[Rfam]
Nucleotides: 086
Stems, first nucleotide, its partner, number of pairs: 002085007009075002012033004017028001035062005043054003
Number, partner (000 for none) and nucleotide at each position: 001000u002085g003084u004083g005082u006081g007080c008079u009075g010074g011000a012033g013032g014031a015030u016000g017028a018000a019000u020000a021000c022000g023000a024000g025000g026000a027000g028017u029000g030015a031014u032013c033012c034000a035062u036061c037060g038059g039058c040000g041000u042000a043054g044053u045052g046000u047000c048000u049000u050000a051000u052045c053044a054043c055000g056000a057000u058039g059038c060037u061036g062035a063000a064000a065000c066000u067000c068000a069000a070000a071000u072000u073000g074010c075009u076000g077000a078000c079008a080007g081006c082005a083004c084003a085002c086000g
Rfam assigns this 86-nucleotide RNA sequence from Orycteropus afer to the family "Small nucleolar RNA SNORD71". Rfam describes the family as follows. snoRNA HBII-239 belongs to the family of C/D snoRNAs.It is the human orthologue of the mouse MBII-239 described and is predicted to guide 2'O-ribose methylation of 5.8S rRNA on residue U14. It scores 103 bits against the family's covariance model. Pairs were carried over by alignment from the consensus structure, which was predicted with RNAalifold. A reference for the family is Huttenhofer et al. (2001), "RNomics: an experimental approach that identifies 201 candidates for novel, small, non-messenger RNAs in mouse", EMBO J.